[Rfam]
A member of the RNA family "Vibrio RNA AS9" from Vibrio navarrensis, 101 nucleotides long.
RNA sequence: CUUGCAGCGCUCUUUGGUCAUGGUCAGACAAAUCAGGCCGCGCCCAUGGGUCGCCAUAAAAUUAAUCGCUUCAGGCGAAAUGUGUUCUGCGGCCAUGAUCA
Numbered sequence: 001c002u003u004g005c006a007g008c009g010c011u012c013u014u015u016g017g018u019c020a021u022g023g024u025c026a027g028a029c030a031a032a033u034c035a036g037g038c039c040g041c042g043c044c045c046a047u048g049g050g051u052c053g054c055c056a057u058a059a060a061a062u063u064a065a066u067c068g069c070u071u072c073a074g075g076c077g078a079a080a081u082g083u084g085u086u087c088u089g090c091g092g093c094c095a096u097g098a099u100c101a
Stems, first nucleotide, its partner, number of pairs: 004054002007051002012023002015020001032047002036044003063101001065099003068093002072089003075085003

A search with the family's covariance model found it, with a score of 69 bits. The family's consensus secondary structure was predicted with RNAfold. It is annotated as an antisense RNA.